[Rfam]
RNA: Eukaryotic large subunit ribosomal RNA, nucleotides 1407 to 1837
Organism: Chromerida sp. RM11
RNA sequence: GGUAGUAGCAAAUAUUCAAAUGAGAACUUUGAAGACUGAAGUGGAGAAGGGUUCCACGCGAACAGCAAUUGGACGUGGAUUAGCCGAUCCUAAGGGACAGGGAAGCUCCGUAUAUCGAGGCUCUGCCUCUGCGCCCGAAAGGGAAGAAGGUUAAUAUUCCUUCGCCAGGACGUGGAUAUUAUAUGGUAACAUAAGUGAACUCCUCGACGCAGGCGCGAGCCUCCGAAAGCGUUGUCUUUGCUUUUUAACAGUCUGUCUCCCUGAAAUCAGAUUAUCUGGAGAAAGGGAUAAAUGGCUGGCAAAGCACCCUGUGAUCCGGGGUGUCGGAAGCGCUCGCGACUGUCCAUGAAAAGGGGAGGGAAAGUAUCAUUCGCACCCCUGGUCGUACCAAUAACCGCAUCAGGUCUCCAAGGUUAGCAGCCUCUGGUCGA
Numbered sequence: 001g002g003u004a005g006u007a008g009c010a011a012a013u014a015u016u017c018a019a020a021u022g023a024g025a026a027c028u029u030u031g032a033a034g035a036c037u038g039a040a041g042u043g044g045a046g047a048a049g050g051g052u053u054c055c056a057c058g059c060g061a062a063c064a065g066c067a068a069u070u071g072g073a074c075g076u077g078g079a080u081u082a083g084c085c086g087a088u089c090c091u092a093a094g095g096g097a098c099a100g101g102g103a104a105g106c107u108c109c110g111u112a113u114a115u116c117g118a119g120g121c122u123c124u125g126c127c128u129c130u131g132c133g134c135c136c137g138a139a140a141g142g143g144a145a146g147a148a149g150g151u152u153a154a155u156a157u158u159c160c161u162u163c164g165c166c167a168g169g170a171c172g173u174g175g176a177u178a179u180u181a182u183a184u185g186g187u188a189a190c191a192u193a194a195g196u197g198a199a200c201u202c203c204u205c206g207a208c209g210c211a212g213g214c215g216c217g218a219g220c221c222u223c224c225g226a227a228a229g230c231g232u233u234g235u236c237u238u239u240g241c242u243u244u245u246u247a248a249c250a251g252u253c254u255g256u257c258u259c260c261c262u263g264a265a266a267u268c269a270g271a272u273u274a275u276c277u278g279g280a281g282a283a284a285g286g287g288a289u290a291a292a293u294g295g296c297u298g299g300c301a302a303a304g305c306a307c308c309c310u311g312u313g314a315u316c317c318g319g320g321g322u323g324u325c326g327g328a329a330g331c332g333c334u335c336g337c338g339a340c341u342g343u344c345c346a347u348g349a350a351a352a353g354g355g356g357a358g359g360g361a362a363a364g365u366a367u368c369a370u371u372c373g374c375a376c377c378c379c380u381g382g383u384c385g386u387a388c389c390a391a392u393a394a395c396c397g398c399a400u401c402a403g404g405u406c407u408c409c410a411a412g413g414u415u416a417g418c419a420g421c422c423u424c425u426g427g428u429c430g431a
Stems, first nucleotide, its partner, number of pairs: 015033006034429004043409004049389002054078005063071002085385003089142002094136002097111002100109003117129003146163005166381004172376003176371001182193004200358006209343004214338007222328003225245006249298005258288005267279004305323007395404002411423004